[Rfam]
RNA sequence: CUAGCGGACCGGGCCCCUCUGACGAUCUUUCUUCGGGAAAGGUUGUGAUGUCGGACCGCGUCG
Numbered sequence: 001c002u003a004g005c006g007g008a009c010c011g012g013g014c015c016c017c018u019c020u021g022a023c024g025a026u027c028u029u030u031c032u033u034c035g036g037g038a039a040a041g042g043u044u045g046u047g048a049u050g051u052c053g054g055a056c057c058g059c060g061u062c063g
Stems, first nucleotide, its partner, number of pairs: 006057002009054004022046010
RNA: terC RNA